[Rfam]
RNA sequence: AUGCCUUCAACUUAUGAGUAAGGAAAAUAACGAUUCAGGAUCACGCCCGAAUUCUCACUGCUACUGGGAGACAAAUUUUUGGCUGGUAAAGGUCAUCCCUAAGGUGACCUGCAUACUUUGUGGGAUGCCUCGAAGCUGUAAUCUGCCCA
Numbered sequence: 001a002u003g004c005c006u007u008c009a010a011c012u013u014a015u016g017a018g019u020a021a022g023g024a025a026a027a028u029a030a031c032g033a034u035u036c037a038g039g040a041u042c043a044c045g046c047c048c049g050a051a052u053u054c055u056c057a058c059u060g061c062u063a064c065u066g067g068g069a070g071a072c073a074a075a076u077u078u079u080u081g082g083c084u085g086g087u088a089a090a091g092g093u094c095a096u097c098c099c100u101a102a103g104g105u106g107a108c109c110u111g112c113a114u115a116c117u118u119u120g121u122g123g124g125a126u127g128c129c130u131c132g133a134a135g136c137u138g139u140a141a142u143c144u145g146c147c148c149a
Base pairs, nucleotide, nucleotide: 004023005022006021007020032053033052034051035050036049038047039046054070055069056068058066084149085148086147090144091143092142093141095139096138100132102130103129104128105127106126108124109123110122111121112120
Rfam assigns this 149-nucleotide sequence from Ochotona princeps to the family "U12 minor spliceosomal RNA". The base pairs follow the family's consensus structure. Taxonomically the source falls in Ochotona (Eukaryota, Craniata, Dipnotetrapodomorpha, Lagomorpha). It is one of the family's seed sequences. A reference for the family is Tarn and Steitz (1997), "Pre-mRNA splicing: the discovery of a new spliceosome doubles the challenge", Trends Biochem Sci. Rfam classes the family as a spliceosomal small nuclear RNA.